[Rfam]
RNA sequence: GGCAGUUCUCAGGUGAUGCACCCUGGAAUUGAGCUCUCUCCUCUCUGGUUCCGGGAUACGUUACCUGAGAACCACC
Number, nucleotide and partner (000 for none) at each position: 001g000002g075003c000004a000005g072006u071007u070008c069009u068010c067011a066012g065013g064014u063015g062016a061017u060018g000019c000020a057021c000022c055023c054024u000025g052026g051027a050028a049029u048030u047031g046032a000033g044034c000035u000036c000037u000038c000039u000040c000041c000042u000043c000044u033045c000046u031047g030048g029049u028050u027051c026052c025053g000054g023055g022056a000057u020058a000059c000060g017061u016062u015063a014064c013065c012066u011067g010068a009069g008070a007071a006072c005073c000074a000075c002076c000

mir-9223 microRNA precursor family: a 76-nucleotide sequence from Cnephaeus nilssonii.
Its family is annotated with RISC complex and miRNA-mediated post-transcriptional gene silencing in the Gene Ontology.